[Rfam]
Nucleotides: 088
Base pairs, nucleotide, nucleotide: 012038013037017033018032019031020030022029023028041082042081043080044079046078047077048076049073050072051071056067057066058065
Number, partner (000 for none) and nucleotide at each position: 001000c002000c003000a004000c005000g006000a007000u008000a009000a010000u011000a012038g013037c014000a015000a016000a017033c018032u019031c020030u021000u022029a023028c024000g025000a026000a027000a028023g029022u030020a031019g032018a033017g034000g035000a036000c037013g038012c039000a040000a041082a042081g043080c044079c045000a046078c047077g048076g049073a050072u051071c052000u053000a054000a055000g056067g057066u058065a059000g060000u061000u062000a063000u064000a065058u066057a067056c068000u069000a070000u071051g072050g073049u074000a075000g076048c077047c078046g079044g080043g081042c082041u083000g084000c085000c086000g087000a088000a

Description: The record is an 88-nucleotide RNA from Peribacillus saganii, which matches "c-di-GMP-I riboswitch aptamer" in Rfam. Taxonomically the source falls in Peribacillus (Bacteria, Bacillota, Bacilli, Caryophanales).